[Rfam]
RNA sequence: CUCCAGGGUCCCAAGUGCAAGCCCCGAUGAGCCUGCAACACUUUCCUAAUAUGAUCAGGCCCCACUGUGGGUGGUGCUGCUUGCUAGGAGCCUCAGAGGAUUAUGAGAGCAUAGCAGGAGAAGUGGGGUCAGGGGAUAUGGCA
Dot-bracket structure: ..(..(.(((((.......(.(((..............................(.((((.((...(((((((....)))))))..)).)))).).............................))).)...))))).).)..
RNA: small Cajal body-specific RNA 17